[Rfam]
RNA: Y RNA
Organism: Otolemur garnettii
RNA sequence: GGCUGGCCUGAGUGCAGUGGUGUCUGCAACUAAUUGAUCACUUCUAGUUACGGAUUCCUUUGUUCCUUCUCCACUCCCACUGCCUUAUUUCACUAGCAUAA
Dot-bracket structure: .(((((...((..(.(((((.(.....(((.((.........................)).)))...........))))))....)..))..)))))....
Numbered sequence: 001g002g003c004u005g006g007c008c009u010g011a012g013u014g015c016a017g018u019g020g021u022g023u024c025u026g027c028a029a030c031u032a033a034u035u036g037a038u039c040a041c042u043u044c045u046a047g048u049u050a051c052g053g054a055u056u057c058c059u060u061u062g063u064u065c066c067u068u069c070u071c072c073a074c075u076c077c078c079a080c081u082g083c084c085u086u087a088u089u090u091c092a093c094u095a096g097c098a099u100a101a
Stems, first nucleotide, its partner, number of pairs: 002097005010090002014086001016081005022076001028064003032060002